[Rfam]
RNA: tRNA
RNA sequence: GGGCCCAUAGCUCAGUGGUAGAGUGCCUCCUUUGCAAGGAGGAUGCCCUGGGUUCGAAUCCCAGUGGGUCCA
Numbered sequence: 001g002g003g004c005c006c007a008u009a010g011c012u013c014a015g016u017g018g019u020a021g022a023g024u025g026c027c028u029c030c031u032u033u034g035c036a037a038g039g040a041g042g043a044u045g046c047c048c049u050g051g052g053u054u055c056g057a058a059u060c061c062c063a064g065u066g067g068g069u070c071c072a
Base pairs, nucleotide, nucleotide: 001071002070003069004068005067006066007065010024011023012022013021026042027041028040029039030038048064049063050062051061052060